[Rfam]
RNA sequence: AUAAUCUUUAACUCAGUCCUGUGAGGCUGGCAAGAUAGUGAUAUAGUCAUCAUAUAUGAUUUAGGAAAUCAAUGUGACUUCUUGCCAGUUAGGCAAGAAGUCUUUUUCUU
Numbered sequence: 001a002u003a004a005u006c007u008u009u010a011a012c013u014c015a016g017u018c019c020u021g022u023g024a025g026g027c028u029g030g031c032a033a034g035a036u037a038g039u040g041a042u043a044u045a046g047u048c049a050u051c052a053u054a055u056a057u058g059a060u061u062u063a064g065g066a067a068a069u070c071a072a073u074g075u076g077a078c079u080u081c082u083u084g085c086c087a088g089u090u091a092g093g094c095a096a097g098a099a100g101u102c103u104u105u106u107u108c109u110u
Stems, first nucleotide, its partner, number of pairs: 004036005013030006040070003044066001047063001049060004074104001076102011
RNA: PyrR binding site